[Rfam]
RNA sequence: UUGAAGCUCCAUCUACAAAUGGAUAAGACUUUGGUCUGAUUGUAUAAGAGUUUUUGAACUAAAAAAGGAGCAAUAGCUUUUCUCUUGUUUUAUCAAGAGAGUGUUAUUGCUCCUUUUUU
Numbered sequence: 001u002u003g004a005a006g007c008u009c010c011a012u013c014u015a016c017a018a019a020u021g022g023a024u025a026a027g028a029c030u031u032u033g034g035u036c037u038g039a040u041u042g043u044a045u046a047a048g049a050g051u052u053u054u055u056g057a058a059c060u061a062a063a064a065a066a067g068g069a070g071c072a073a074u075a076g077c078u079u080u081u082c083u084c085u086u087g088u089u090u091u092a093u094c095a096a097g098a099g100a101g102u103g104u105u106a107u108u109g110c111u112c113c114u115u116u117u118u119u
Base pairs, nucleotide, nucleotide: 008023009022010021011020012019064116065115066114067113068112069111070110071109072108073107074106075105076104079101082099083098084097085096086095
Dot-bracket structure: .......(((((......)))))........................................(((((((((((((..(..(((((........))))).)..)))))))))))))...
Plastid-psbA-1 3UTR RNA: a 119-nucleotide RNA. The literature on the family includes a 2023 paper in Plant Commun by Richter et al., "Retrograde signaling in plants: A critical review focusing on the GUN pathway and beyond". About the family: Plastid psbA-1 is a non-coding RNA (ncRNA) present in plastids. It was identified in inverted repeat sequences in the 3 prime untranslate region (3UTR) of photosystem II quinone-binding protein (psbA).